The family of this 78-nucleotide RNA from Nicotiana tabacum is "MIR6145 microRNA precursor family".
[Rfam]
Nucleotides: 078
Base pairs, nucleotide, nucleotide: 001077002076003075004074005073007071008070010068011067012066013065014064015063016062017061018060019059022057027052028051029050030049031048
Number, partner (000 for none) and nucleotide at each position: 001077g002076c003075u004074g005073g006000u007071a008070g009000u010068a011067u012066u013065g014064u015063u016062a017061c018060a019059u020000a021000u022057a023000a024000c025000a026000c027052u028051g029050a030049c031048u032000u033000g034000c035000a036000u037000g038000g039000a040000g041000a042000u043000a044000u045000u046000u047000c048031g049030g050029u051028c052027a053000u054000c055000a056000c057022u058000a059019g060018u061017g062016u063015a064014a065013c066012a067011a068010u069000c070008u071007u072000u073005u074004c075003g076002g077001c078000u
The family has 2 seed sequences and 52 matches in Rfam 15.1. Its family is annotated with RISC complex and miRNA-mediated post-transcriptional gene silencing in the Gene Ontology.